The family of this 99-nucleotide RNA is "wcaG RNA".
It is one of the family's seed sequences.
By type it is a cis-regulatory element.
[Rfam]
Nucleotides: 099
Base pairs, nucleotide, nucleotide: 009030010029011028012027013026014025016024040054041053042052044051045050056073057072058071059070063085064084065083066082067081068080
Number, partner (000 for none) and nucleotide at each position: 001000u002000c003000g004000g005000g006000u007000u008000u009030c010029u011028u012027g013026u014025u015000u016024c017000u018000c019000c020000u021000c022000a023000a024016g025014a026013a027012c028011a029010a030009g031000u032000g033000g034000u035000g036000c037000g038000g039000a040054u041053g042052g043000a044051g045050a046000a047000u048000a049000c050045u051044c052042c053041c054040g055000c056073c057072u058071g059070g060000u061000u062000u063085a064084c065083a066082u067081g068080u069000u070059c071058c072057a073056g074000u075000c076000a077000a078000a079000a080068a081067u082066a083065u084064g085063u086000u087000g088000g089000u090000g091000g092000u093000a094000a095000a096000u097000c098000c099000c